[Rfam]
RNA sequence: UUUGAAACAAUCUCGCACUUGCAGCACACUUACAGUGUACCAGUUACACCCUCUGCUGCGGGAAGGUCUGAGAUAAGCCGCCAAUGUUCUCGCAGGACAUCUGCAUUUUGCAGAGCGAAAGCACCAGAAACGCGCGAGGAGUUUUUAAGUCGAGGAUUGACGCUGCUCAUAGACGCUGAAAAUUUCUCGUUGAAAUUUUUCGCGGAUGGCGAUUUUAGUACAAUCUGCGAGCUAAUGUUAGAACUCGAUUCAGACUAAUCUGCUUCAAA
Numbered sequence: 001u002u003u004g005a006a007a008c009a010a011u012c013u014c015g016c017a018c019u020u021g022c023a024g025c026a027c028a029c030u031u032a033c034a035g036u037g038u039a040c041c042a043g044u045u046a047c048a049c050c051c052u053c054u055g056c057u058g059c060g061g062g063a064a065g066g067u068c069u070g071a072g073a074u075a076a077g078c079c080g081c082c083a084a085u086g087u088u089c090u091c092g093c094a095g096g097a098c099a100u101c102u103g104c105a106u107u108u109u110g111c112a113g114a115g116c117g118a119a120a121g122c123a124c125c126a127g128a129a130a131c132g133c134g135c136g137a138g139g140a141g142u143u144u145u146u147a148a149g150u151c152g153a154g155g156a157u158u159g160a161c162g163c164u165g166c167u168c169a170u171a172g173a174c175g176c177u178g179a180a181a182a183u184u185u186c187u188c189g190u191u192g193a194a195a196u197u198u199u200u201c202g203c204g205g206a207u208g209g210c211g212a213u214u215u216u217a218g219u220a221c222a223a224u225c226u227g228c229g230a231g232c233u234a235a236u237g238u239u240a241g242a243a244c245u246c247g248a249u250u251c252a253g254a255c256u257a258a259u260c261u262g263c264u265u266c267a268a269a
Stems, first nucleotide, its partner, number of pairs: 001269004008262002012231006021059005035049005068253005076207001078205002085099005100114005115203007135189003232241003
A member of the RNA family "Nuclear RNase P" from Zophobas morio, 269 nucleotides long. Rfam 15.1 lists 3,848 matches to the family in 1,862 species. The literature on the family includes a 1998 paper in Annu Rev Biochem by Frank and Pace, "Ribonuclease P: unity and diversity in a tRNA processing ribozyme". Rfam's curators write: Ribonuclease P (RNase P) is a ubiquitous endoribonuclease, found in archaea, bacteria and eukarya as well as chloroplasts and mitochondria. Its best characterised activity is the generation of mature 5'-ends of tRNAs by cleaving the 5'-leader elements of precursor-tRNAs. Cellular RNase Ps are ribonucleoproteins.